[Rfam]
Nucleotides: 077
Base pairs, nucleotide, nucleotide: 004074005073006072007071010068011067012066013065014064015063016062017061019060020059021058022057023056024055027052028051029050030049031048032047
Number, partner (000 for none) and nucleotide at each position: 001000u002000u003000a004074c005073c006072c007071g008000c009000u010068u011067u012066g013065g014064c015063a016062c017061u018000g019060g020059c021058a022057c023056a024055u025000a026000c027052u028051u029050g030049c031048u032047u033000c034000a035000c036000u037000g038000u039000g040000a041000a042000a043000c044000c045000c046000u047032g048031a049030g050029c051028a052027a053000u054000u055024a056023u057022g058021u059020g060019u061017a062016g063015u064014g065013c066012c067011g068010a069000c070000u071007c072006g073005g074004g075000u076000a077000g